A member of the RNA family "Small nucleolar RNA SNORA63" from Aotus nancymaae, 129 nucleotides long. From the family's description: E3 belongs to the H/ACA class of snoRNAs and is involved in the processing of eukaryotic pre-rRNA and has regions of complementarity to 18S rRNA. E3 is encoded in introns in the gene for protein synthesis initiation factor 4AII. Pairs were carried over by alignment from the consensus structure, which was predicted with PFOLD.

RNA sequence: AAGCAGGAAUCAGACUACAAUAUAGCUGUUCCGUGCUGUAUUGUCAUUCCCCCUGCUCAAAUUAAAGUUGUUUCUUAACUACACCUGUCUGCUAUUCUGUAGCAGCCAGGGAUGCUUGAUUACAUACAU
Numbered sequence: 001a002a003g004c005a006g007g008a009a010u011c012a013g014a015c016u017a018c019a020a021u022a023u024a025g026c027u028g029u030u031c032c033g034u035g036c037u038g039u040a041u042u043g044u045c046a047u048u049c050c051c052c053c054u055g056c057u058c059a060a061a062u063u064a065a066a067g068u069u070g071u072u073u074c075u076u077a078a079c080u081a082c083a084c085c086u087g088u089c090u091g092c093u094a095u096u097c098u099g100u101a102g103c104a105g106c107c108a109g110g111g112a113u114g115c116u117u118g119a120u121u122a123c124a125u126a127c128a129u
Base pairs, nucleotide, nucleotide: 003056004055005054006053007052017044018043019042020041021040022039023038024037025036026035084110085109086108087107089105090104091103092102